This 94-nucleotide RNA sequence from Ornithorhynchus anatinus belongs to the Rfam family "Y RNA". Rfam's curators put it in the seed alignment. Rfam describes the family as follows. Y RNAs are components of the Ro ribonucleoprotein particle (Ro RNP), in association with Ro60 and La proteins. The Y RNAs and Ro60 and La proteins are well conserved, but the function of the Ro RNP is not known. In humans the RNA component can be one of four small RNAs -- hY1, hY3, hY4 and hY5. These small RNAs are predicted to fold into a conserved secondary structure containing three stem structures. The largest of the four, hY1, contains an additional hairpin. This family includes a significant number of annotated pseudogenes and the model is expected to discriminate poorly between real and Y RNA related pseudogenes. Pairs were carried over by alignment from the consensus structure, which is taken from published work. By type it is a non-coding RNA gene.
RNA sequence: GGCUGGUCCGAUAGUAGUGGGUGCCCAGAACUCUUUAAUAUAGUUUCACUAAACUUGGUAUAUUCCACCUCACUGCUAAACUUGACUGGCCUUU
Numbered sequence: 001g002g003c004u005g006g007u008c009c010g011a012u013a014g015u016a017g018u019g020g021g022u023g024c025c026c027a028g029a030a031c032u033c034u035u036u037a038a039u040a041u042a043g044u045u046u047c048a049c050u051a052a053a054c055u056u057g058g059u060a061u062a063u064u065c066c067a068c069c070u071c072a073c074u075g076c077u078a079a080a081c082u083u084g085a086c087u088g089g090c091c092u093u094u
Base pairs, nucleotide, nucleotide: 001091002090003089004088005087006086007085008084010083011082015078016074017073018072019071020070021069027059030056
Dot-bracket structure: ((((((((.((...(((((((.....(..(.........................)..).........))))))...)...))))))))))...